[Rfam]
RNA: Archaeal large subunit ribosomal RNA, nucleotides 1368 to 1733
Organism: Methanoculleus marisnigri
RNA sequence: AUUAGUAGAAGCAAAGUUGGGUGAGAAUCCCAACCGCCGGAGGGGCUAGGUUUCCUCGGCAAUGUUCGUCAGCCGAGGGUUAGUCGGUCCUAAGAUGUGUCGUAAUUCGAGCACGUCAACAGGGAAACAGGUUAAUAUUCCUGUACCAUUCAUCCGUAGCAGUUUACUGCCCUGACGCUUCGGGAUAUGCCGGGCAGGGUCGUCGCCCUGUCCAAGCGUUCAAGCUCGUGGAGUACCGCCAUGGUGAGAAGCGAGUGAAGGCGUGAUGGAGUAAUUCGGCAAAUUCCUGGAGCCCGUGAAAAGGGGGAUGAAUGUCCGUACCGAGAUCUGACACAGGUGCCCCUAGCUGAAAAGGCUAAGGCGUGU
Numbered sequence: 001a002u003u004a005g006u007a008g009a010a011g012c013a014a015a016g017u018u019g020g021g022u023g024a025g026a027a028u029c030c031c032a033a034c035c036g037c038c039g040g041a042g043g044g045g046c047u048a049g050g051u052u053u054c055c056u057c058g059g060c061a062a063u064g065u066u067c068g069u070c071a072g073c074c075g076a077g078g079g080u081u082a083g084u085c086g087g088u089c090c091u092a093a094g095a096u097g098u099g100u101c102g103u104a105a106u107u108c109g110a111g112c113a114c115g116u117c118a119a120c121a122g123g124g125a126a127a128c129a130g131g132u133u134a135a136u137a138u139u140c141c142u143g144u145a146c147c148a149u150u151c152a153u154c155c156g157u158a159g160c161a162g163u164u165u166a167c168u169g170c171c172c173u174g175a176c177g178c179u180u181c182g183g184g185a186u187a188u189g190c191c192g193g194g195c196a197g198g199g200u201c202g203u204c205g206c207c208c209u210g211u212c213c214a215a216g217c218g219u220u221c222a223a224g225c226u227c228g229u230g231g232a233g234u235a236c237c238g239c240c241a242u243g244g245u246g247a248g249a250a251g252c253g254a255g256u257g258a259a260g261g262c263g264u265g266a267u268g269g270a271g272u273a274a275u276u277c278g279g280c281a282a283a284u285u286c287c288u289g290g291a292g293c294c295c296g297u298g299a300a301a302a303g304g305g306g307g308a309u310g311a312a313u314g315u316c317c318g319u320a321c322c323g324a325g326a327u328c329u330g331a332c333a334c335a336g337g338u339g340c341c342c343c344u345a346g347c348u349g350a351a352a353a354g355g356c357u358a359a360g361g362c363g364u365g366u
Stems, first nucleotide, its partner, number of pairs: 016034006035363004043342004049322002054078006063071002085318003089123002094117006100110003127144005147314008171305003177293009188281005193212006216264004225255005235245003328337002344358004